[Rfam]
RNA sequence: CCGGCACCGGUUCACCCCUGCACAGGGGACCCGGGGCC
Number, nucleotide and partner (000 for none) at each position: 001c000002c000003g038004g037005c036006a000007c034008c033009g032010g031011u000012u000013c000014a000015c028016c027017c026018c025019u024020g000021c000022a000023c000024a019025g018026g017027g016028g015029a000030c000031c010032c009033g008034g007035g000036g005037c004038c003

This 38-nucleotide RNA from Amycolatopsis benzoatilytica belongs to the Rfam family "L31-Actinobacteria ribosomal protein leader". Rfam's curators put it in the seed alignment. The family's consensus secondary structure is taken from published work.